[Rfam]
RNA sequence: UACUUAUCAAGAAAGACCGAGGGAUUGGGCCCGAUGACGUCUUAGCAACCUGUCCACCAGUGUGUGGGUUUCGGUGCUACUUCCCAGCCCGCAGUGACGGGACAGAUGAGCG
Numbered sequence: 001u002a003c004u005u006a007u008c009a010a011g012a013a014a015g016a017c018c019g020a021g022g023g024a025u026u027g028g029g030c031c032c033g034a035u036g037a038c039g040u041c042u043u044a045g046c047a048a049c050c051u052g053u054c055c056a057c058c059a060g061u062g063u064g065u066g067g068g069u070u071u072c073g074g075u076g077c078u079a080c081u082u083c084c085c086a087g088c089c090c091g092c093a094g095u096g097a098c099g100g101g102a103c104a105g106a107u108g109a110g111c112g
Stems, first nucleotide, its partner, number of pairs: 001112001003110006013043005021032003026087001028085001029083001044078004049074002052069005082104001088101004
A member of the RNA family "SAM riboswitch aptamer (S box leader)" from Ekhidna lutea, 112 nucleotides long. Lineage of the source: Bacteria > Pseudomonadati > Cytophagales > Reichenbachiellaceae > Ekhidna. A search with the family's covariance model found it, with a score of 65 bits.